RNA sequence: GGGCAUUCGGAAGGCUUGCACUCUGGGCUACACGCUGAGAACCUGUUUCUCUCCCCCCGCCCAGGGGAAAGUCCCCGGACACCGAGCAGAGAGUGCUCCUGGGUGAUCCCAGCGCCGGCCCGCGCUCCACCGCUGUGAAGCUAAGACGUUCACCCGAACAGAGCUUGGUGAUCGCUGGUCGGCUUUGUCAGCGUUAAUAGUAAUGCAAGUGAGCAGUUACUGACGCCGAAACAGAACGGGGCUCAUUCUCGGAAUGCA
Numbered sequence: 001g002g003g004c005a006u007u008c009g010g011a012a013g014g015c016u017u018g019c020a021c022u023c024u025g026g027g028c029u030a031c032a033c034g035c036u037g038a039g040a041a042c043c044u045g046u047u048u049c050u051c052u053c054c055c056c057c058c059g060c061c062c063a064g065g066g067g068a069a070a071g072u073c074c075c076c077g078g079a080c081a082c083c084g085a086g087c088a089g090a091g092a093g094u095g096c097u098c099c100u101g102g103g104u105g106a107u108c109c110c111a112g113c114g115c116c117g118g119c120c121c122g123c124g125c126u127c128c129a130c131c132g133c134u135g136u137g138a139a140g141c142u143a144a145g146a147c148g149u150u151c152a153c154c155c156g157a158a159c160a161g162a163g164c165u166u167g168g169u170g171a172u173c174g175c176u177g178g179u180c181g182g183c184u185u186u187g188u189c190a191g192c193g194u195u196a197a198u199a200g201u202a203a204u205g206c207a208a209g210u211g212a213g214c215a216g217u218u219a220c221u222g223a224c225g226c227c228g229a230a231a232c233a234g235a236a237c238g239g240g241g242c243u244c245a246u247u248c249u250c251g252g253a254a255u256g257c258a
Base pairs, nucleotide, nucleotide: 003257004256005255006254007253008252010250011249014210015209016208017207018206019205022065023064024063025062026061027060028059037051038050039049040048041047070243071242073241074240075239076238085097086096087095088094099112100111101110102109103108115182116181117180119178120177122175123174124173128170129169130168138166139165140164141163148159149158150157151156213227216224217223
Shown here is a 258-nucleotide RNA sequence from Larimichthys crocea, a member of the family "RNase MRP". Its family is annotated with ribonuclease MRP activity, rRNA processing and ribonuclease MRP complex in the Gene Ontology. RNase MRP is an enzymatically active ribonucleoprotein with two distinct roles in eukaryotes. In mitochondria it plays a direct role in the initiation of mitochondrial DNA replication. In the nucleus it is involved in precursor rRNA processing, where it cleaves the internal transcribed spacer 1 between 18S and 5.8S rRNAs. Despite distinct functions, RNase MRP has been shown to be evolutionarily related to RNase P. Like eukaryotic RNase P, RNase MRP is not catalytically active without associated protein subunits. A search with the family's covariance model found it, with a score of 153 bits.